[Rfam]
RNA: MIR8643 microRNA precursor family
Organism: Gossypium barbadense
RNA sequence: AUGUCUUUUAACAUAUUAAGAAGUCGAAUUGGCAGUGAAGAAAGAAGUAGAAAGUCAAAAGUCAUCAUUACCUAUAAUCAAAACCCAUAAACCCAUACCAUUAUUCUUUCUUCACUGCCAAUUCGACUUCCUGAUAUGUUAAAAGAUAU
Numbered sequence: 001a002u003g004u005c006u007u008u009u010a011a012c013a014u015a016u017u018a019a020g021a022a023g024u025c026g027a028a029u030u031g032g033c034a035g036u037g038a039a040g041a042a043a044g045a046a047g048u049a050g051a052a053a054g055u056c057a058a059a060a061g062u063c064a065u066c067a068u069u070a071c072c073u074a075u076a077a078u079c080a081a082a083a084c085c086c087a088u089a090a091a092c093c094c095a096u097a098c099c100a101u102u103a104u105u106c107u108u109u110c111u112u113c114a115c116u117g118c119c120a121a122u123u124c125g126a127c128u129u130c131c132u133g134a135u136a137u138g139u140u141a142a143a144a145g146a147u148a149u
Stems, first nucleotide, its partner, number of pairs: 004146015020130012033117014049101001